RNA sequence: CCCGGUCCUCGGUAGUGGCUUACGGGAGGCGUGAGUGUUCCCGCGCCCGUGGGCUUCGAUCGAAGGCCGUC
Numbered sequence: 001c002c003c004g005g006u007c008c009u010c011g012g013u014a015g016u017g018g019c020u021u022a023c024g025g026g027a028g029g030c031g032u033g034a035g036u037g038u039u040c041c042c043g044c045g046c047c048c049g050u051g052g053g054c055u056u057c058g059a060u061c062g063a064a065g066g067c068c069g070u071c
Base pairs, nucleotide, nucleotide: 003069004068005067006066007065009063010062011061012060013059017055018054019053020052021051022050023049024048025047026046

Rfam assigns this 71-nucleotide RNA sequence from Nesterenkonia cremea to the family "Actino-pnp RNA". A search with the family's covariance model found it, with a score of 60 bits. The family's consensus secondary structure is taken from published work. The source organism's lineage runs through Bacteria, Bacillati, Actinomycetota, Micrococcales and Nesterenkonia.